Description
A member of the RNA family "Purine riboswitch aptamer" from Paenibacillus sp. D9, 100 nucleotides long. The match comes from Rfam's covariance-model search (64 bits). NCBI's taxonomy places the organism under Bacteria, Bacillati, Bacilli, Caryophanales, Paenibacillus.
RNA sequence: UGUCGCCUUACCCGGCGCGUUCGUAUAUCCCCGAUAAUAAGGUUCGGGGGUCUCUACAAGGAACCUCAAAUUCCUGGCUACGAACGGGAUGCUUUCGCAU
Numbered sequence: 001u002g003u004c005g006c007c008u009u010a011c012c013c014g015g016c017g018c019g020u021u022c023g024u025a026u027a028u029c030c031c032c033g034a035u036a037a038u039a040a041g042g043u044u045c046g047g048g049g050g051u052c053u054c055u056a057c058a059a060g061g062a063a064c065c066u067c068a069a070a071u072u073c074c075u076g077g078c079u080a081c082g083a084a085c086g087g088g089a090u091g092c093u094u095u096c097g098c099a100u
Base pairs, nucleotide, nucleotide: 018086019085020084021083022082023081024080025079029049030048031047032046033045034044059075060074061073062072063071
The family's consensus secondary structure is taken from published work.